[Rfam]
RNA sequence: CUGUUAGUCCUAAACACUGUUAAAUUGAAUAAUUGGUCAGAUCUGGAAAGAAGCAGCCAAAUCAAUCGAUACAGGUGUUUUGAUAUAGCUAACAGAAUC
Numbered sequence: 001c002u003g004u005u006a007g008u009c010c011u012a013a014a015c016a017c018u019g020u021u022a023a024a025u026u027g028a029a030u031a032a033u034u035g036g037u038c039a040g041a042u043c044u045g046g047a048a049a050g051a052a053g054c055a056g057c058c059a060a061a062u063c064a065a066u067c068g069a070u071a072c073a074g075g076u077g078u079u080u081u082g083a084u085a086u087a088g089c090u091a092a093c094a095g096a097a098u099c
Base pairs, nucleotide, nucleotide: 004092005091006090007089008088010082012080013079014078015075017074018073019072020071024066025065026064027063028062033060034059035058036057037056042051043050044049
Shown here is a 99-nucleotide RNA from Buchnera aphidicola, a member of the family "Bacterial small signal recognition particle RNA". Its Rfam clan is "SRP clan". Rfam describes the family as follows. The signal recognition particle (SRP) is a universally conserved ribonucleoprotein involved in the co-translational targeting of proteins to membranes. The organism belongs to Buchnera aphidicola (Schizaphis graminum), within Bacteria.